[Rfam]
RNA sequence: UUUCAAUGAGGAAGAAUGCCCGAAGUGAUAGGAAGUGCCGUAUGACACGUUAUACAGCGCCGCCCAG
Number, nucleotide and partner (000 for none) at each position: 001u000002u000003u000004c000005a000006a000007u000008g000009a000010g000011g000012a000013a000014g061015a000016a000017u000018g000019c000020c000021c000022g000023a000024a000025g000026u000027g000028a000029u000030a000031g000032g051033a050034a000035g048036u047037g046038c000039c000040g000041u000042a000043u000044g000045a000046c037047a036048c035049g000050u033051u032052a000053u000054a000055c000056a000057g000058c000059g000060c000061c014062g000063c000064c000065c000066a000067g000
RNA: Small nucleolar RNA U49